The record is an 85-nucleotide RNA from Cinara cedri, which matches "mir-927 microRNA precursor family" in Rfam. Its family is annotated with RISC complex and miRNA-mediated post-transcriptional gene silencing in the Gene Ontology. A search with the family's covariance model found it, with a score of 70 bits.
[Rfam]
RNA sequence: AGGAGGUGUUCGGUUUUAGAAUUCCUACGCUUUACCGUUCACAAUUAUACCGGGCAAAGCGUUUGAAUUGUAAAACUGAACCCUC
Numbered sequence: 001a002g003g004a005g006g007u008g009u010u011c012g013g014u015u016u017u018a019g020a021a022u023u024c025c026u027a028c029g030c031u032u033u034a035c036c037g038u039u040c041a042c043a044a045u046u047a048u049a050c051c052g053g054g055c056a057a058a059g060c061g062u063u064u065g066a067a068u069u070g071u072a073a074a075a076c077u078g079a080a081c082c083c084u085c
Base pairs, nucleotide, nucleotide: 009079010078013076014075015074016073017072018071020069022067023066024065027062028061029060030059031058032057033056035054036053